RNA sequence: UUUUUUAAGGAAGAUCUGGCCUUCCUACAAAAAGAGGCCAAGGAAUUUUCUU
Numbered sequence: 001u002u003u004u005u006u007a008a009g010g011a012a013g014a015u016c017u018g019g020c021c022u023u024c025c026u027a028c029a030a031a032a033a034g035a036g037g038c039c040a041a042g043g044a045a046u047u048u049u050c051u052u
Base pairs, nucleotide, nucleotide: 008052009051010050011049012048013047014046015042017040018039019038020037021036022035023034
The family of this 52-nucleotide sequence from Lentivirus humimdef1 is "HIV Ribosomal frameshift signal". Gene Ontology term of the family: viral translational frameshifting. The family's RNA type in Rfam is frameshift element. The literature on the family includes a 2004 paper in J Virol by Biswas et al., "The human immunodeficiency virus type 1 ribosomal frameshifting site is an invariant sequence determinant and an important target for antiviral therapy". It is one of the family's seed sequences. The family's consensus secondary structure is taken from published work. Rfam describes the family as follows. This family represents the HIV Ribosomal frameshift signal. HIV uses a system called -1 ribosomal frameshifting to produce the required ratio of Gag and Gag-Pol polyproteins. The stem-loop structure of the frameshift signal is thought to impede the ribosome and cause slippage in the 5' direction, this causes the -1 frameshift and translation then continues in the new frame.